[Rfam]
RNA: mir-36 microRNA precursor family
Organism: Caenorhabditis sp. 36 PRJEB53466
RNA sequence: UCUCUCGGAUCGGGUCGGACCUUUGCCCGUUUCUGCUUCUGUGAUACUGCACUAUACCAUAGCUUAUCACCGGGUGGAAACUGGUAGAGGUCCGAUCCUUUCCC
Numbered sequence: 001u002c003u004c005u006c007g008g009a010u011c012g013g014g015u016c017g018g019a020c021c022u023u024u025g026c027c028c029g030u031u032u033c034u035g036c037u038u039c040u041g042u043g044a045u046a047c048u049g050c051a052c053u054a055u056a057c058c059a060u061a062g063c064u065u066a067u068c069a070c071c072g073g074g075u076g077g078a079a080a081c082u083g084g085u086a087g088a089g090g091u092c093c094g095a096u097c098c099u100u101u102c103c104c
Base pairs, nucleotide, nucleotide: 016094017093018092019091020090021089022088024086025085026084027083029081030080031079032078033077034076035075036074037073039072041070042069043068044067045066046065
Dot-bracket structure: ...............(((((((.((((.(((((((((.(.((((((..................)))))).)))))))))).)))).)))))))..........